The family of this 65-nucleotide part of an RNA from an uncultured Atribacterota bacterium is "Bacterial large subunit ribosomal RNA". It is one of the family's seed sequences.

Nucleotides: 065
Stems, first nucleotide, its partner, number of pairs: 002047004008041005051064001053062001
Number, partner (000 for none) and nucleotide at each position: 001000a002047g003046u004045g005044g006000a007000a008041g009040c010039c011038c012037g013000a014000u015000g016000c017000u018000c019000u020000c021000a022000a023000c024000u025000u026000u027000a028000g029000u030000u031000g032000a033000g034000a035000g036000c037012c038011g039010g040009g041008u042000g043000a044005c045004c046003g047002c048000g049000u050000g051064c052000c053062u054000u055000u056000u057000g058000u059000a060000g061000a062053a063000u064051g065000a